[Rfam]
Nucleotides: 084
Stems, first nucleotide, its partner, number of pairs: 007050006015042002017072005027038004063077003
Number, partner (000 for none) and nucleotide at each position: 001000c002000c003000c004000a005000u006000c007050c008049c009048g010047c011046g012045u013000g014000a015042c016041u017072g018071g019070c020069g021068a022000u023000a024000a025000a026000g027038g028037u029036g030035g031000g032000c033000g034000a035030c036029c037028a038027c039000c040000g041016g042015g043000g044000a045012g046011c047010g048009c049008g050007g051000a052000g053000a054000c055000c056000a057000u058000a059000u060000u061000c062000c063077g064076c065075c066000g067000c068021u069020c070019g071018c072017c073000u074000g075065g076064g077063c078000a079000u080000u081000c082000c083000u084000u
This 84-nucleotide sequence from Phenylobacterium soli belongs to the Rfam family "ZMP/ZTP riboswitch aptamer (pfl RNA motif)". The family's consensus secondary structure is taken from published work. Lineage of the source: Bacteria > Pseudomonadati > Alphaproteobacteria > Caulobacteraceae > Phenylobacterium. Its family is annotated with regulation of purine nucleotide biosynthetic process and one-carbon metabolic process in the Gene Ontology. A search with the family's covariance model found it, with a score of 63 bits.